[Rfam]
RNA: Small nucleolar RNA SNORD116
Organism: Erinaceus europaeus
RNA sequence: GUAUCAUUGAUGAGUCCCCUCAAAAGCAUUCCUUGGAAAGCUGAACAAAAUGUGUGAGAACUCACCACUGGUAACCUCAUUGGAUACUUAGGUCC
Numbered sequence: 001g002u003a004u005c006a007u008u009g010a011u012g013a014g015u016c017c018c019c020u021c022a023a024a025a026g027c028a029u030u031c032c033u034u035g036g037a038a039a040g041c042u043g044a045a046c047a048a049a050a051u052g053u054g055u056g057a058g059a060a061c062u063c064a065c066c067a068c069u070g071g072u073a074a075c076c077u078c079a080u081u082g083g084a085u086a087c088u089u090a091g092g093u094c095c
Base pairs, nucleotide, nucleotide: 001095003093004092005091027056028055029054031052033048034047035046